Annotation:
A member of the RNA family "Small nucleolar RNA SNORA64/SNORA10 family" from Microcaecilia unicolor, 135 nucleotides long. Rfam describes the family as follows. This family belongs to the H/ACA class of small nucleolar RNAs (snoRNAs) which act as guides in the the modification of uridines to pseudouridines. This family includes the human snoRNAs U64 and ACA10 and mouse MBI-29. The match comes from Rfam's covariance-model search (66 bits). Its family is annotated with nucleolus and RNA processing in the Gene Ontology. The family is grouped with related families in Rfam's "SNORA64 clan". By type it is an H/ACA-box small nucleolar RNA. For this family Rfam cites "Nucleolar localization signals of box H/ACA small nucleolar RNAs" (Narayanan et al., EMBO J, 1999).
RNA sequence: AUUCUCUCAGCUCUGCUCAGCUACACUUGAUUGGGUAGUGUAGUUGUCGUUAAUGGAGAGAGAGAGAGAGGAGUUUCAUUUGCACGGCAGAUUGACCUAAAGUGGUCUCCCUGUUCGUUCUUUGAAACUACAGGU
Numbered sequence: 001a002u003u004c005u006c007u008c009a010g011c012u013c014u015g016c017u018c019a020g021c022u023a024c025a026c027u028u029g030a031u032u033g034g035g036u037a038g039u040g041u042a043g044u045u046g047u048c049g050u051u052a053a054u055g056g057a058g059a060g061a062g063a064g065a066g067a068g069a070g071g072a073g074u075u076u077c078a079u080u081u082g083c084a085c086g087g088c089a090g091a092u093u094g095a096c097c098u099a100a101a102g103u104g105g106u107c108u109c110c111c112u113g114u115u116c117g118u119u120c121u122u123u124g125a126a127a128c129u130a131c132a133g134g135u
Stems, first nucleotide, its partner, number of pairs: 002066007011058005019045008074127005081117002089112002094107004
Dot-bracket structure: .(((((((..(((((...((((((((...........))))))))........))))).))))))).......(((((..((......((...((((......))))...))...)).....)))))........